RNA sequence: UUCAUUGAAGGGCAAAACCCGUGAAAGCGGGCGACGCAAAGCCACGGGCCUACAGCAGUGCUCCUGCCAAGGCAGCCGGGUUGCCAAA
Number, nucleotide and partner (000 for none) at each position: 001u000002u000003c000004a000005u000006u000007g000008a000009a000010g000011g000012g037013c036014a000015a000016a000017a000018c031019c030020c029021g028022u027023g000024a000025a000026a000027g022028c021029g020030g019031g018032c000033g000034a000035c000036g013037c012038a000039a000040a082041g081042c080043c079044a000045c078046g077047g076048g073049c072050c071051u000052a000053c000054a000055g067056c066057a065058g064059u000060g000061c000062u000063c000064c058065u057066g056067c055068c000069a000070a000071g050072g049073c048074a000075g000076c047077c046078g045079g043080g042081u041082u040083g000084c000085c000086a000087a000088a000

The family of this 88-nucleotide RNA from Bacillus sp. FJAT-27231 is "c-di-GMP-I riboswitch aptamer". Lineage of the source: Bacteria > Bacilli > Caryophanales > Bacillaceae > Bacillus.